Description
Bacterial small signal recognition particle RNA: a 99-nucleotide RNA from Lachnospiraceae bacterium MD329. The match comes from Rfam's covariance-model search (67 bits). Rfam describes the family as follows. The signal recognition particle (SRP) is a universally conserved ribonucleoprotein involved in the co-translational targeting of proteins to membranes. The base pairs follow the family's consensus structure, which is taken from published work. The source organism's lineage runs through Bacteria, Bacillati, Bacillota, Clostridia and Lachnospiraceae.

[Rfam]
RNA sequence: UGACCGAGCCCGCGCGACCGAAACCCGUGAACCUUGUCAGGCGGGGAACCGAGCAGCAAUAAGCGGUGCUUUCGGUGUGUUGCGGUAAACUCGGUCUGA
Numbered sequence: 001u002g003a004c005c006g007a008g009c010c011c012g013c014g015c016g017a018c019c020g021a022a023a024c025c026c027g028u029g030a031a032c033c034u035u036g037u038c039a040g041g042c043g044g045g046g047a048a049c050c051g052a053g054c055a056g057c058a059a060u061a062a063g064c065g066g067u068g069c070u071u072u073c074g075g076u077g078u079g080u081u082g083c084g085g086u087a088a089a090c091u092c093g094g095u096c097u098g099a
Stems, first nucleotide, its partner, number of pairs: 004094005010085005015077001017076006025066004034059004042051003